[Rfam]
The record is a 114-nucleotide RNA from Thalassarche chlororhynchos, which matches "Small nucleolar RNA SNORD90" in Rfam. For this family Rfam cites "RNomics: an experimental approach that identifies 201 candidates for novel, small, non-messenger RNAs in mouse" (Huttenhofer et al., EMBO J, 2001). It is annotated as a C/D-box small nucleolar RNA. From the family's description: snoRNA HBII-295 belongs to the family of C/D snoRNAs. It is the human orthologue of the mouse MBII-295 and has no identified RNA target. The source organism's lineage runs through Eukaryota, Vertebrata, Sarcopterygii, Aves and Thalassarche.

RNA sequence: AACUCCCUUUUUUGUGUCUUAUGAUGAAGCUUCAUAGGGCAGAUUCUGAGCUGAGAAAUUAAAUUUCUCUCCACUGAUACUCUCUAUAUGCCAUCUGAAGACACUACUAUUGCA
Numbered sequence: 001a002a003c004u005c006c007c008u009u010u011u012u013u014g015u016g017u018c019u020u021a022u023g024a025u026g027a028a029g030c031u032u033c034a035u036a037g038g039g040c041a042g043a044u045u046c047u048g049a050g051c052u053g054a055g056a057a058a059u060u061a062a063a064u065u066u067c068u069c070u071c072c073a074c075u076g077a078u079a080c081u082c083u084c085u086a087u088a089u090g091c092c093a094u095c096u097g098a099a100g101a102c103a104c105u106a107c108u109a110u111u112g113c114a
Base pairs, nucleotide, nucleotide: 012106014104015103016102017101018100019099029094033090034089035088037083038082039081042078045077046076048074050072053069054068055067056066057065